A member of the RNA family "tRNA" from Georhizobium profundi, 82 nucleotides long.
The family's consensus secondary structure is taken from published work.
The organism belongs to Georhizobium, within Bacteria.
RNA sequence: GCGGGCGUGGUGGAAUGGUAGACACACGGGACUUAAAAUCCCGAGACCCUGGGUCGUGCGGGUUCGAGUCCCGCCGCCCGCA
Numbered sequence: 001g002c003g004g005g006c007g008u009g010g011u012g013g014a015a016u017g018g019u020a021g022a023c024a025c026a027c028g029g030g031a032c033u034u035a036a037a038a039u040c041c042c043g044a045g046a047c048c049c050u051g052g053g054u055c056g057u058g059c060g061g062g063u064u065c066g067a068g069u070c071c072c073g074c075c076g077c078c079c080g081c082a
Stems, first nucleotide, its partner, number of pairs: 001081007010025003027043005058074005
Dot-bracket structure: (((((((..(((..........))).(((((.......)))))..............(((((.......)))))))))))).